[Rfam]
RNA sequence: ACAUCAACCUGCGGGUGCUCACUGUUUUGUCUCAGUCGGGCUGAGAAACACCGCCAAACCUGAACAGGAUAAUCCCUGCGUAGGGAAGGAAAACAAUCACAUG
Numbered sequence: 001a002c003a004u005c006a007a008c009c010u011g012c013g014g015g016u017g018c019u020c021a022c023u024g025u026u027u028u029g030u031c032u033c034a035g036u037c038g039g040g041c042u043g044a045g046a047a048a049c050a051c052c053g054c055c056a057a058a059c060c061u062g063a064a065c066a067g068g069a070u071a072a073u074c075c076c077u078g079c080g081u082a083g084g085g086a087a088g089g090a091a092a093a094c095a096a097u098c099a100c101a102u103g
Stems, first nucleotide, its partner, number of pairs: 008089003011054004016048001017041004059084004065078004
RNA: TPP riboswitch aptamer (THI element)
Organism: Ephemeroptericola cinctiostellae